[Rfam]
RAGATH-18 RNA: a 62-nucleotide RNA from Clostridium grantii.

RNA sequence: CCCUUGGAGUGUUAUAGCAAACAAAAGUAGCUCAGGUGAAAUUGGACACGGUGAAUAGGGAA
Numbered sequence: 001c002c003c004u005u006g007g008a009g010u011g012u013u014a015u016a017g018c019a020a021a022c023a024a025a026a027g028u029a030g031c032u033c034a035g036g037u038g039a040a041a042u043u044g045g046a047c048a049c050g051g052u053g054a055a056u057a058g059g060g061a062a
Stems, first nucleotide, its partner, number of pairs: 001060004009049005022044003030037002
Overview: Rfam classes the family as a small RNA. The family's consensus secondary structure is taken from published work. Rfam's curators write: Actinobacteria, Firmicutes, Fusobacteria, Thermotogae (1 example). The organism belongs to Clostridium grantii, within Bacteria.